Rfam assigns this 171-nucleotide sequence from Methylococcus sp. EFPC2 to the family "c-di-GMP-I riboswitch aptamer". NCBI's taxonomy places the organism under Bacteria, Pseudomonadota, Gammaproteobacteria, Methylococcales, Methylococcus. It scores 50 bits against the family's covariance model.

[Rfam]
RNA sequence: CAGUGAGUCUGCCAAACCUGUCGCGAGGCAGGGACGGAAAGCUACGGAUCUUUGAACUUCGUUGCUCUGCCGGCAGGAGCGUCGGACCACUGAAAGGCGAUGACGUCCUUUCGGGUUGACGGUUCAGCAGCCAAGAGUUUCAACGACUUCAAAGAUAGCCGGGUUGCCAUC
Numbered sequence: 001c002a003g004u005g006a007g008u009c010u011g012c013c014a015a016a017c018c019u020g021u022c023g024c025g026a027g028g029c030a031g032g033g034a035c036g037g038a039a040a041g042c043u044a045c046g047g048a049u050c051u052u053u054g055a056a057c058u059u060c061g062u063u064g065c066u067c068u069g070c071c072g073g074c075a076g077g078a079g080c081g082u083c084g085g086a087c088c089a090c091u092g093a094a095a096g097g098c099g100a101u102g103a104c105g106u107c108c109u110u111u112c113g114g115g116u117u118g119a120c121g122g123u124u125c126a127g128c129a130g131c132c133a134a135g136a137g138u139u140u141c142a143a144c145g146a147c148u149u150c151a152a153a154g155a156u157a158g159c160c161g162g163g164u165u166g167c168c169a170u171c
Stems, first nucleotide, its partner, number of pairs: 012037002017032006040165004045161003048156009